[Rfam]
RNA: Purine riboswitch aptamer
Organism: Peribacillus asahii
RNA sequence: AUUGCAUCUAAUAGUUUCGCUCGUAUAAUCGUGGGGAUCGGCCCACAAGUUUCUACCGGAUUACCGUAAAUAAUCCGACUAUGAGUGGGAAAUAAAUCUUG
Numbered sequence: 001a002u003u004g005c006a007u008c009u010a011a012u013a014g015u016u017u018c019g020c021u022c023g024u025a026u027a028a029u030c031g032u033g034g035g036g037a038u039c040g041g042c043c044c045a046c047a048a049g050u051u052u053c054u055a056c057c058g059g060a061u062u063a064c065c066g067u068a069a070a071u072a073a074u075c076c077g078a079c080u081a082u083g084a085g086u087g088g089g090a091a092a093u094a095a096a097u098c099u100u101g
Base pairs, nucleotide, nucleotide: 018087019086020085021084022083023082024081025080029048031046032045033044034043035042057077058076059075060074061073062072063071